[Rfam]
Bacterial RNase P class A: a 377-nucleotide RNA sequence from Haemophilus influenzae. Rfam classes the family as a ribozyme. Rfam's curators write: Ribonuclease P (RNase P) is a ubiquitous endoribonuclease, found in archaea, bacteria and eukarya as well as chloroplasts and mitochondria. Its best characterised activity is the generation of mature 5'-ends of tRNAs by cleaving the 5'-leader elements of precursor-tRNAs. Cellular RNase Ps are ribonucleoproteins. RNA from bacterial RNase Ps retains its catalytic activity in the absence of the protein subunit, i.e. it is a ribozyme. Isolated eukaryotic and archaeal RNase P RNA has not been shown to retain its catalytic function, but is still essential for the catalytic activity of the holoenzyme. Although the archaeal and eukaryotic holoenzyme s have a much greater protein content than the bacterial ones, the RNA cores from all the three lineages are homologous -- helices corresponding to P1, P2, P3, P4, and P10/11 are common to all cellular RNase P RNAs. Yet, there is considerable sequence variation, particularly among the eukaryotic RNAs. Identified in Yersinia as Ysr151/RnpB.

RNA sequence: CGAGUUGGUUAGACAAUCGCUGGUUUAUUGAAGCCCUUAACCGUAUUUAUACGACCUAGUGGGACAAGUAAACGAGAGGAAAGUCCGAGCUACACAGGGCAGAGUGCCGGAUAACGUCCGGGCGGCGUGAGCCGACGACCAGUGCAACAGAGAGCAGACCGCCGUGUAAACGGUAAGGGUGAAAGGGUGCGGUAAGAGCGCACCGUGCCGUUGGUAACAACGUGCAGCAGGGUAAACUCCACUCGUAGCAAGACCAAAUAGGAACUCAAUGGGUGGCCCGUCCAGAGUUCGGGUAGGUUGCUUGAGCGGCAGAGUAAUUUGUCGCCUAGAGGAAUGAUUGUCCACGACAGAACUCGGCUUAUCGACCAACUCAAAAC
Numbered sequence: 001c002g003a004g005u006u007g008g009u010u011a012g013a014c015a016a017u018c019g020c021u022g023g024u025u026u027a028u029u030g031a032a033g034c035c036c037u038u039a040a041c042c043g044u045a046u047u048u049a050u051a052c053g054a055c056c057u058a059g060u061g062g063g064a065c066a067a068g069u070a071a072a073c074g075a076g077a078g079g080a081a082a083g084u085c086c087g088a089g090c091u092a093c094a095c096a097g098g099g100c101a102g103a104g105u106g107c108c109g110g111a112u113a114a115c116g117u118c119c120g121g122g123c124g125g126c127g128u129g130a131g132c133c134g135a136c137g138a139c140c141a142g143u144g145c146a147a148c149a150g151a152g153a154g155c156a157g158a159c160c161g162c163c164g165u166g167u168a169a170a171c172g173g174u175a176a177g178g179g180u181g182a183a184a185g186g187g188u189g190c191g192g193u194a195a196g197a198g199c200g201c202a203c204c205g206u207g208c209c210g211u212u213g214g215u216a217a218c219a220a221c222g223u224g225c226a227g228c229a230g231g232g233u234a235a236a237c238u239c240c241a242c243u244c245g246u247a248g249c250a251a252g253a254c255c256a257a258a259u260a261g262g263a264a265c266u267c268a269a270u271g272g273g274u275g276g277c278c279c280g281u282c283c284a285g286a287g288u289u290c291g292g293g294u295a296g297g298u299u300g301c302u303u304g305a306g307c308g309g310c311a312g313a314g315u316a317a318u319u320u321g322u323c324g325c326c327u328a329g330a331g332g333a334a335u336g337a338u339u340g341u342c343c344a345c346g347a348c349a350g351a352a353c354u355c356g357g358c359u360u361a362u363c364g365a366c367c368a369a370c371u372c373a374a375a376a377c
Stems, first nucleotide, its partner, number of pairs: 002372009011362001012342007020076002023073006081360003085357005090248004097279004102244005107121005122136001123134004137239002142237002144233002159178002161174005186204006205228001206226003209222005252299004262290006270284005306325008
The base pairs follow the family's consensus structure, which is taken from published work. The organism belongs to Haemophilus influenzae, within Bacteria. Gene Ontology terms of the family: dimeric ribonuclease P complex, ribonuclease P activity and tRNA processing.